[Rfam]
RNA sequence: AUCGUUAGAUAAUCGUAAACGCGUAUAAGUCGGGAAUCGGCCCGAACGUCUCUACCCGGAAACCCUAAUUUCCGGACUACGCGGCAAUCGCAAGCGACC
Numbered sequence: 001a002u003c004g005u006u007a008g009a010u011a012a013u014c015g016u017a018a019a020c021g022c023g024u025a026u027a028a029g030u031c032g033g034g035a036a037u038c039g040g041c042c043c044g045a046a047c048g049u050c051u052c053u054a055c056c057c058g059g060a061a062a063c064c065c066u067a068a069u070u071u072c073c074g075g076a077c078u079a080c081g082c083g084g085c086a087a088u089c090g091c092a093a094g095c096g097a098c099c
Stems, first nucleotide, its partner, number of pairs: 020083006029047001030045005056075007
Dot-bracket structure: ...................((((((...((((((......))))).)........(((((((......)))))))..))))))................